[Rfam]
Nucleotides: 116
Stems, first nucleotide, its partner, number of pairs: 011106001015102006024093011
Number, partner (000 for none) and nucleotide at each position: 001000c002000u003000c004000a005000c006000a007000g008000a009000g010000g011106u012000u013000a014000u015102u016101u017100g018099g019098c020097a021000u022000u023000c024093u025092g026091u027090c028089c029088a030087c031086c032085u033084c034083c035000a036000g037000g038000u039000a040000c041000u042000g043000a044000u045000c046000c047000u048000c049000u050000c051000u052000u053000g054000u055000a056000c057000a058000u059000c060000c061000c062000c063000a064000a065000g066000g067000a068000g069000a070000a071000c072000a073000a074000c075000a076000a077000a078000u079000c080000g081000a082000u083034g084033g085032a086031g087030g088029u089028g090027g091026g092025c093024a094000u095000c096000c097020u098019g099018c100017c101016a102015a103000c104000u105000g106011a107000c108000c109000u110000c111000u112000g113000u114000u115000g116000g
A member of the RNA family "MIR394 microRNA precursor family" from Musa troglodytarum, 116 nucleotides long.
Its family is annotated with RISC complex and miRNA-mediated post-transcriptional gene silencing in the Gene Ontology.